[Rfam]
The family of this 58-nucleotide RNA from Vombatus ursinus is "mir-7398 microRNA precursor family". NCBI's taxonomy places the organism under Eukaryota, Bilateria, Euteleostomi, Metatheria, Vombatus. The family has 23 seed sequences and 132 matches in Rfam 15.1. Pairs were carried over by alignment from the consensus structure, which was predicted with RNAalifold.
RNA sequence: UGUGUAGAAGUGAGAAGGUGCCAUGUUGUGUCUUGGUAAAUUUCUCCCCACUCACAGU
Numbered sequence: 001u002g003u004g005u006a007g008a009a010g011u012g013a014g015a016a017g018g019u020g021c022c023a024u025g026u027u028g029u030g031u032c033u034u035g036g037u038a039a040a041u042u043u044c045u046c047c048c049c050a051c052u053c054a055c056a057g058u
Base pairs, nucleotide, nucleotide: 002055003054004053006052007051010048012046013045014043015042016041020037021036022035